[Rfam]
RNA sequence: ACGUGCUCCGGGGUCGGUGAGAAUCCGAACCGGCGGUGACAGUCCGCGAGCCGAGGGAGCGAUCCCGAGGUUGAUCCGGUGGGAUUCCGGGACCGACGGUGAUGCAGGCGCAGCCUGCGAGUCCGGAUGAGAGGAAGCACGC
Numbered sequence: 001a002c003g004u005g006c007u008c009c010g011g012g013g014u015c016g017g018u019g020a021g022a023a024u025c026c027g028a029a030c031c032g033g034c035g036g037u038g039a040c041a042g043u044c045c046g047c048g049a050g051c052c053g054a055g056g057g058a059g060c061g062a063u064c065c066c067g068a069g070g071u072u073g074a075u076c077c078g079g080u081g082g083g084a085u086u087c088c089g090g091g092a093c094c095g096a097c098g099g100u101g102a103u104g105c106a107g108g109c110g111c112a113g114c115c116u117g118c119g120a121g122u123c124c125g126g127a128u129g130a131g132a133g134g135a136a137g138c139a140c141g142c
Stems, first nucleotide, its partner, number of pairs: 003140004007134002015027003031095002033047004042093002050071003075091005097125003
RNA: FMN riboswitch aptamer (RFN element)
Organism: Microbacterium sediminis